Shown here is a 101-nucleotide sequence from Carex littledalei, a member of the family "mir-399 microRNA precursor family".
A search with the family's covariance model found it, with a score of 58 bits.
About the family: mir-399 was identified in both Arabidopsis thaliana and Oryza sativa computationally and was later experimentally verified. mir-399 is thought to target mRNAs coding for a phosphatase transporter. The mature sequence is excised from the 3' arm of the hairpin.
Rfam 15.1 lists 2,396 matches to the family in 221 species.
RNA sequence: GUGUGAAUAACAGCGCAGUUCUCCUUUGGCGAGGAGGCCUCUAGCUUUCACACAGAUAAAAUGCAUACCUUGCCAAAGGAGAAUUGUCCUGAUAUUCACCU
Numbered sequence: 001g002u003g004u005g006a007a008u009a010a011c012a013g014c015g016c017a018g019u020u021c022u023c024c025u026u027u028g029g030c031g032a033g034g035a036g037g038c039c040u041c042u043a044g045c046u047u048u049c050a051c052a053c054a055g056a057u058a059a060a061a062u063g064c065a066u067a068c069c070u071u072g073c074c075a076a077a078g079g080a081g082a083a084u085u086g087u088c089c090u091g092a093u094a095u096u097c098a099c100c101u
Base pairs, nucleotide, nucleotide: 005097006096007095008094009093011091012090013089015087016086017085018084019083021081022080023079024078027075028074029073030072031071032070033069034068